[Rfam]
A member of the RNA family "tpke11" from Pantoea sp. Aalb, 80 nucleotides long. The base pairs follow the family's consensus structure, which was predicted with WAR. A reference for the family is Rivas et al. (2001), "Computational identification of noncoding RNAs in E. coli by comparative genomics", Curr Biol. The source organism's lineage runs through Bacteria, Pseudomonadati, Pseudomonadota, Gammaproteobacteria and Pantoea. In Yersinia located in ICR upstream dnaJ (chaperone)gene. Rfam links the family to the GO term response to temperature stimulus. By type it is a small RNA.
RNA sequence: AAUAGCCGUUAAAACGAACACGGGCGUAAAUUAUUUUUUUUUUACGCCCGUGAAAUCAUGUUAAGAGCAGGAUAAAAUGG
Numbered sequence: 001a002a003u004a005g006c007c008g009u010u011a012a013a014a015c016g017a018a019c020a021c022g023g024g025c026g027u028a029a030a031u032u033a034u035u036u037u038u039u040u041u042u043u044a045c046g047c048c049c050g051u052g053a054a055a056u057c058a059u060g061u062u063a064a065g066a067g068c069a070g071g072a073u074a075a076a077a078u079g080g
Base pairs, nucleotide, nucleotide: 003017005015019052020051021050022049023048024047025046026045028043029042030041